RNA: Bacterial RNase P class B
Organism: Furfurilactobacillus siliginis
RNA sequence: AAUUUCGGGUAAUUGGGCGUAACUUAUGUUGCGUCAGGAAAGUCCAUGCUCGCACAGGCUGUGAUGCCUGUAGUGUUCGUGCUCAGUGAAAAAAUAAGCUGAGGUACCUCUUUGAGGUAACGGCGGGAAAAAACGGCUACGGUUUCGGCUAUGCCUGAGUAUCCCUGAAAAGUGCCACAGUGACGAUACCAGUUCGGAAACGGACUGGGUGGAACGCGGUAAACCCCUCGAGCGGGAAACCCAAACUACGGUAGGGGAGCUUCACAUAGGUAACUGAACUGAUUGUGGGGGAGGACUUUGUGUCCUGAGAUAGAUGAUUACCACGGAGUAAGCUGCGCCUGAGGCUUACGAUGUACAAAACAUGGCUUACAGAA
Numbered sequence: 001a002a003u004u005u006c007g008g009g010u011a012a013u014u015g016g017g018c019g020u021a022a023c024u025u026a027u028g029u030u031g032c033g034u035c036a037g038g039a040a041a042g043u044c045c046a047u048g049c050u051c052g053c054a055c056a057g058g059c060u061g062u063g064a065u066g067c068c069u070g071u072a073g074u075g076u077u078c079g080u081g082c083u084c085a086g087u088g089a090a091a092a093a094a095u096a097a098g099c100u101g102a103g104g105u106a107c108c109u110c111u112u113u114g115a116g117g118u119a120a121c122g123g124c125g126g127g128a129a130a131a132a133a134c135g136g137c138u139a140c141g142g143u144u145u146c147g148g149c150u151a152u153g154c155c156u157g158a159g160u161a162u163c164c165c166u167g168a169a170a171a172g173u174g175c176c177a178c179a180g181u182g183a184c185g186a187u188a189c190c191a192g193u194u195c196g197g198a199a200a201c202g203g204a205c206u207g208g209g210u211g212g213a214a215c216g217c218g219g220u221a222a223a224c225c226c227c228u229c230g231a232g233c234g235g236g237a238a239a240c241c242c243a244a245a246c247u248a249c250g251g252u253a254g255g256g257g258a259g260c261u262u263c264a265c266a267u268a269g270g271u272a273a274c275u276g277a278a279c280u281g282a283u284u285g286u287g288g289g290g291g292a293g294g295a296c297u298u299u300g301u302g303u304c305c306u307g308a309g310a311u312a313g314a315u316g317a318u319u320a321c322c323a324c325g326g327a328g329u330a331a332g333c334u335g336c337g338c339c340u341g342a343g344g345c346u347u348a349c350g351a352u353g354u355a356c357a358a359a360a361c362a363u364g365g366c367u368u369a370c371a372g373a374a
Stems, first nucleotide, its partner, number of pairs: 004374003007370001008322007016035006040368003044365005049236005054071006077231003081227001082103006104121001105119006122226002125165004135155003141150003172224002174220003189208008240256003260290007292306005324353002328349007